[Rfam]
Shown here is a 146-nucleotide sequence from Senna tora, a member of the family "Small nucleolar RNA snoR138". Rfam 15.1 lists 308 matches to the family in 168 species. Gene Ontology terms of the family: RNA processing and nucleolus. The family's RNA type in Rfam is H/ACA-box small nucleolar RNA.

RNA sequence: AUUGCCUUCGAAUAACCAGACGGUGAAACAAUCGCACACCGUGCGAUACGACGCCGUUCUGGCUCAGACAAAGGCGCAUAUCAAUACGAAUCAGUUUGAGAGUGUGGAACGCUUCUUGUUCCUUACUUAGAUUGAUUCGGAUAUUC
Dot-bracket structure: ..((((((.....(.((((((.(((..........................))).)).)))).)......))))))..........((((((.(((..((.(...(((((.......)))))...))).))).)))))).......